[Rfam]
RNA: Enterococcus sRNA A5
RNA sequence: AGCUGAACUUUGUUCAGCAGCAAUUCCUUUCGGCACUACUUCUUCUGCUGUGGUUGGUUGAGAAGUAG
Numbered sequence: 001a002g003c004u005g006a007a008c009u010u011u012g013u014u015c016a017g018c019a020g021c022a023a024u025u026c027c028u029u030u031c032g033g034c035a036c037u038a039c040u041u042c043u044u045c046u047g048c049u050g051u052g053g054u055u056g057g058u059u060g061a062g063a064a065g066u067a068g
Base pairs, nucleotide, nucleotide: 002018003017004016005015006014007013008012036068037067038066039065040064041063042062043061044060047058048057049056